[Rfam]
RNA sequence: AAGGUAGAUGCCGAAAAACCUUUAAAGAGUAGGUA
Numbered sequence: 001a002a003g004g005u006a007g008a009u010g011c012c013g014a015a016a017a018a019c020c021u022u023u024a025a026a027g028a029g030u031a032g033g034u035a
Stems, first nucleotide, its partner, number of pairs: 002021004010034003